[Rfam]
RNA sequence: GAAGCAACAUAAGCGCCAGAACUUAGGAUGGCAUCGGAGUCUUUUUCAUCCCGGCAGCCUGGCUGCAUAUCUGUUUUGUCGAAGGAGCGUAAGGAAAGACAAUGGCAGGUGGGAAGAAGAAGCGAAGAGCAUCUAAGUUGACGAGGUGAAGGUGUUCGAAACAUUCGGCGGGGACCUUCCGGCAUUUCAUUCAUGCCGUAAGCUUGGAAAGCAAACUGCCCGGGUGACCGGGUAAACAAGAUUCCAGCAUAAUGAUGC
Number, nucleotide and partner (000 for none) at each position: 001g000002a000003a000004g000005c000006a000007a000008c000009a000010u000011a000012a000013g000014c000015g000016c000017c000018a000019g000020a139021a138022c137023u136024u135025a134026g133027g132028a000029u000030g000031g000032c000033a000034u000035c000036g000037g000038a000039g000040u000041c000042u000043u000044u000045u000046u000047c000048a000049u000050c000051c000052c000053g000054g000055c000056a000057g000058c000059c000060u000061g000062g000063c000064u000065g000066c000067a000068u000069a000070u000071c000072u000073g000074u000075u000076u000077u000078g000079u000080c000081g000082a000083a000084g000085g000086a000087g000088c000089g000090u000091a000092a000093g000094g000095a000096a000097a000098g000099a000100c000101a000102a000103u000104g000105g000106c000107a000108g000109g000110u000111g000112g000113g000114a000115a000116g000117a000118a000119g000120a000121a000122g000123c000124g000125a000126a000127g000128a000129g000130c000131a000132u027133c026134u025135a024136a023137g022138u021139u020140g000141a000142c000143g000144a000145g000146g000147u000148g179149a178150a177151g176152g175153u000154g000155u000156u168157c167158g166159a165160a000161a000162c000163a000164u000165u159166c158167g157168g156169c000170g000171g000172g000173g000174a000175c152176c151177u150178u149179c148180c198181g197182g196183c195184a194185u193186u000187u000188c000189a000190u000191u000192c000193a185194u184195g183196c182197c181198g180199u000200a000201a000202g000203c000204u247205u246206g245207g244208a243209a242210a000211g000212c000213a000214a000215a000216c000217u234218g233219c232220c231221c230222g229223g228224g000225u000226g000227a000228c223229c222230g221231g220232g219233u218234a217235a000236a000237c000238a000239a000240g000241a000242u209243u208244c207245c206246a205247g204248c000249a000250u000251a000252a000253u000254g000255a000256u000257g000258c000
RNA: glmS glucosamine-6-phosphate activated ribozyme aptamer